[Rfam]
RNA sequence: UUAAGGUAGUUAUUUACAGGGUCCCUUAAAGGGUAACCUUUAAGUGCAAAUCGGGUGAAUUGCUGGAACUUCCUUAGAGCUAUCCUCCCUACAACGUAAUCUGAAAAGAUAAGCGUGAAAGGUUAAAAAGAGGUAGAUUGGAUAAUCAGCAGCCGAGCUCCUGCUUCCGAAAGGAUGGAGAAGGUUCAACGACUAGGAUGUACUACCUAAAGCUUUAGGCUAUGGUGAUGAGAUCCGUAGGGGUAAGAGGUUCCCCGAAGUACCCGACAAUCAAAAAAUAUUUUGGUUGAAGAUAUAGUCUGGCAUAUAUUGAAAGGUAUAU
Dot-bracket structure: ((.................))........(((....)))...........[[[[.[[...((((((....(((..................................................................)))...))))))((....((((....(......)...))))...))...(.(((((.................................................................]].]]]]..(((((((....)))))))........)))))).....(((((....)))))..
Numbered sequence: 001u002u003a004a005g006g007u008a009g010u011u012a013u014u015u016a017c018a019g020g021g022u023c024c025c026u027u028a029a030a031g032g033g034u035a036a037c038c039u040u041u042a043a044g045u046g047c048a049a050a051u052c053g054g055g056u057g058a059a060u061u062g063c064u065g066g067a068a069c070u071u072c073c074u075u076a077g078a079g080c081u082a083u084c085c086u087c088c089c090u091a092c093a094a095c096g097u098a099a100u101c102u103g104a105a106a107a108g109a110u111a112a113g114c115g116u117g118a119a120a121g122g123u124u125a126a127a128a129a130g131a132g133g134u135a136g137a138u139u140g141g142a143u144a145a146u147c148a149g150c151a152g153c154c155g156a157g158c159u160c161c162u163g164c165u166u167c168c169g170a171a172a173g174g175a176u177g178g179a180g181a182a183g184g185u186u187c188a189a190c191g192a193c194u195a196g197g198a199u200g201u202a203c204u205a206c207c208u209a210a211a212g213c214u215u216u217a218g219g220c221u222a223u224g225g226u227g228a229u230g231a232g233a234u235c236c237g238u239a240g241g242g243g244u245a246a247g248a249g250g251u252u253c254c255c256c257g258a259a260g261u262a263c264c265c266g267a268c269a270a271u272c273a274a275a276a277a278a279u280a281u282u283u284u285g286g287u288u289g290a291a292g293a294u295a296u297a298g299u300c301u302g303g304c305a306u307a308u309a310u311u312g313a314a315a316g317g318u319a320u321a322u
Stems, first nucleotide, its partner, number of pairs: 001021002030039003051267004056262002061151006071142003152185002158180004166173001189301001191300005270287007307320005
Rfam assigns this 322-nucleotide RNA sequence from Desulfonispora thiosulfatigenes to the family "Group I catalytic intron". Pairs were carried over by alignment from the consensus structure, which is taken from published work. Its family is annotated with Group I intron splicing in the Gene Ontology. From the family's description: Group I catalytic introns are large self-splicing ribozymes. They catalyse their own excision from mRNA, tRNA and rRNA precursors in a wide range of organisms. The core secondary structure consists of 9 paired regions (P1-P9). The match comes from Rfam's covariance-model search (102 bits).